[Rfam]
RNA sequence: GAAUUCCUUACAGCAAUUAAAUCAAUUCACUCAUUUGAAAAACCUUGGAUUCUG
Numbered sequence: 001g002a003a004u005u006c007c008u009u010a011c012a013g014c015a016a017u018u019a020a021a022u023c024a025a026u027u028c029a030c031u032c033a034u035u036u037g038a039a040a041a042a043c044c045u046u047g048g049a050u051u052c053u054g
Base pairs, nucleotide, nucleotide: 001052002051003050004049005048006047
Dot-bracket structure: ((((((........................................))))))..
Shown here is a 54-nucleotide RNA sequence from Dictyostelium purpureum, a member of the family "Class I RNA from Dictyostelium". The base pairs follow the family's consensus structure, which is taken from published work. From the family's description: Dictyostelium Class I RNA was first reported for Aspegren et al. 2004 in Dictyostelium discoideum. The match comes from Rfam's covariance-model search (55 bits). The literature on the family includes a 2004 paper in Nucleic Acids Res by Aspegren et al., "Novel non-coding RNAs in Dictyostelium discoideum and their expression during development". Rfam classes the family as a non-coding RNA gene.